[Rfam]
Record summary: A member of the RNA family "Selenocysteine transfer RNA" from Alphaproteobacteria bacterium HT1-32, 92 nucleotides long. Lineage of the source: Bacteria > Pseudomonadati > Pseudomonadota > Alphaproteobacteria. The literature on the family includes a 2000 paper in FEBS Lett by Mizutani and Goto, "Eukaryotic selenocysteine tRNA has the 9/4 secondary structure". The family is grouped with related families in Rfam's "tRNA clan". The match comes from Rfam's covariance-model search (65 bits).
RNA sequence: GGAAGAGUAUGCGCGUCUGGUGAUCGUCGCGGGCUUCAAACCCGUUGAGGGGUGGCAAGCCAUCCCUGGUAGGUUCAAUUCCUGCCUCUUCC
Numbered sequence: 001g002g003a004a005g006a007g008u009a010u011g012c013g014c015g016u017c018u019g020g021u022g023a024u025c026g027u028c029g030c031g032g033g034c035u036u037c038a039a040a041c042c043c044g045u046u047g048a049g050g051g052g053u054g055g056c057a058a059g060c061c062a063u064c065c066c067u068g069g070u071a072g073g074u075u076c077a078a079u080u081c082c083u084g085c086c087u088c089u090u091c092c
Stems, first nucleotide, its partner, number of pairs: 001092007011027003015024003029045005048067005070084004